[Rfam]
Nucleotides: 140
Base pairs, nucleotide, nucleotide: 020051021050022048023047025046026045027044033041034040079115080114081112082111083110087106088105089103090102129140130139
Number, partner (000 for none) and nucleotide at each position: 001000a002000g003000c004000u005000u006000u007000g008000c009000g010000c011000a012000g013000u014000g015000g016000c017000a018000g019000u020051a021050u022048a023047u024000a025046a026045c027044c028000a029000a030000u031000g032000a033041a034040g035000u036000u037000a038000a039000u040034c041033u042000g043000a044027g045026g046025u047023g048022u049000g050021a051020u052000u053000a054000u055000u056000g057000c058000u059000a060000g061000u062000u063000g064000a065000a066000a067000a068000u069000u070000c071000u072000u073000u074000c075000c076000u077000c078000a079115a080114u081112u082111u083110g084000a085000a086000c087106c088105u089103u090102a091000g092000a093000g094000u095000c096000c097000a098000a099000a100000a101000a102090u103089g104000a105088g106087g107000u108000a109000c110083c111082a112081g113000c114080a115079u116000g117000a118000a119000u120000u121000c122000c123000u124000u125000u126000a127000a128000g129140c130139u131000u132000a133000a134000u135000u136000a137000c138000c139130a140129g

The family of this 140-nucleotide RNA from Chelonoidis abingdonii is "U4 spliceosomal RNA".
Pairs were carried over by alignment from the consensus structure, which is taken from published work.
U4 small nuclear RNA (U4 snRNA) is a component of the major U2-dependent spliceosome.
Lineage of the source: Eukaryota > Eumetazoa > Sauria > Chelonoidis > Chelonoidis nigra species complex.
The family's RNA type in Rfam is spliceosomal small nuclear RNA.
Rfam 15.1 lists 32,178 matches to the family in 2,547 species.